[Rfam]
RNA sequence: AGAAUACUUCGGCAAAACUGUCGAAAGACAGUGACGCAAAGCUAUAGGGACUGUAAAAUGUCAGCCAGCUGCAAUU
Dot-bracket structure: ...........((...((((((....))))))...))..((((...(((((........)))..))))))......
This 76-nucleotide RNA from Clostridiales bacterium KLE1615 belongs to the Rfam family "c-di-GMP-I riboswitch aptamer". Gene Ontology term of the family: cyclic-di-GMP binding. The family's consensus secondary structure is taken from published work.